[Rfam]
RNA sequence: GCACACAUGAUGUGAACAAAACAGUGUGAGAAACUGUGAUGUUGUAAACGCUUUCUGAUGUG
Numbered sequence: 001g002c003a004c005a006c007a008u009g010a011u012g013u014g015a016a017c018a019a020a021a022c023a024g025u026g027u028g029a030g031a032a033a034c035u036g037u038g039a040u041g042u043u044g045u046a047a048a049c050g051c052u053u054u055c056u057g058a059u060g061u062g
Stems, first nucleotide, its partner, number of pairs: 002062004012054001015052001017050001022044006
RNA: Small nucleolar RNA Z39
Organism: Struthio camelus